[Rfam]
RNA: BsrG
RNA sequence: GCAUGUGGAACGACUUGCAAGGGUGGUCGGCUACCUCUCUAUAGAAGGGAGGGAUGCUCAUGGAGGUUAAGGAUGCACUGACAUUGAUGAUUAGUUUUGGUGCGCUCAUUGUAGCGCUGCUUACGCUGGUCGUCGCCAUUGUCACUGCAUUGAACCAAAAGAAAUAGACCGCCCCCCUGCAAGGUAGCGGUCUAUUACUGAUCGUUUCACCGAAGCCGACCGCCUUUGAAGCGGUCUAUCGUGCCAAGGAGUCGUGUUCGCGCACGGCUC
Numbered sequence: 001g002c003a004u005g006u007g008g009a010a011c012g013a014c015u016u017g018c019a020a021g022g023g024u025g026g027u028c029g030g031c032u033a034c035c036u037c038u039c040u041a042u043a044g045a046a047g048g049g050a051g052g053g054a055u056g057c058u059c060a061u062g063g064a065g066g067u068u069a070a071g072g073a074u075g076c077a078c079u080g081a082c083a084u085u086g087a088u089g090a091u092u093a094g095u096u097u098u099g100g101u102g103c104g105c106u107c108a109u110u111g112u113a114g115c116g117c118u119g120c121u122u123a124c125g126c127u128g129g130u131c132g133u134c135g136c137c138a139u140u141g142u143c144a145c146u147g148c149a150u151u152g153a154a155c156c157a158a159a160a161g162a163a164a165u166a167g168a169c170c171g172c173c174c175c176c177c178u179g180c181a182a183g184g185u186a187g188c189g190g191u192c193u194a195u196u197a198c199u200g201a202u203c204g205u206u207u208c209a210c211c212g213a214a215g216c217c218g219a220c221c222g223c224c225u226u227u228g229a230a231g232c233g234g235u236c237u238a239u240c241g242u243g244c245c246a247a248g249g250a251g252u253c254g255u256g257u258u259c260g261c262g263c264a265c266g267g268c269u270c
Stems, first nucleotide, its partner, number of pairs: 001244005008236001010235001011218002014215003018179002021176003025172001026169003034053002037051004062124001064122004076089002100115002220234004249270009